This 112-nucleotide sequence from Musa balbisiana belongs to the Rfam family "Plastid-psbA-1 3UTR RNA". For this family Rfam cites "Retrograde signaling in plants: A critical review focusing on the GUN pathway and beyond" (Richter et al., Plant Commun, 2023). The source organism's lineage runs through Eukaryota, Streptophyta, Streptophytina, Spermatophyta and Musa. The family is grouped with related families in Rfam's "Plastid-psbA 3UTR RNA clan". Plastid psbA-1 is a non-coding RNA (ncRNA) present in plastids. It was identified in inverted repeat sequences in the 3 prime untranslate region (3UTR) of photosystem II quinone-binding protein (psbA).

RNA sequence: UCGAAGUUUCAUCAUACAAAUGGAUAAGAUUGGUUCUUAGUGUAUACGAAUCGUUGAAAACAAAGUAGCAAACCCAUGUCUUGCUUUAGCAGACAUGGGGUAUUUGUACUUG
Number, nucleotide and partner (000 for none) at each position: 001u000002c000003g000004a000005a000006g000007u000008u024009u023010c022011a021012u020013c000014a000015u000016a000017c000018a000019a000020a012021u011022g010023g009024a008025u000026a000027a000028g000029a000030u000031u000032g000033g000034u000035u000036c000037u000038u000039a000040g000041u000042g000043u000044a000045u000046a000047c000048g000049a000050a000051u000052c000053g000054u000055u000056g000057a000058a000059a000060a000061c112062a000063a111064a110065g109066u108067a107068g000069c000070a104071a103072a000073c000074c098075c097076a096077u000078g094079u093080c092081u091082u000083g000084c000085u000086u000087u000088a000089g000090c000091a081092g080093a079094c078095a000096u076097g075098g074099g000100g000101u000102a000103u071104u070105u000106g000107u067108a066109c065110u064111u063112g061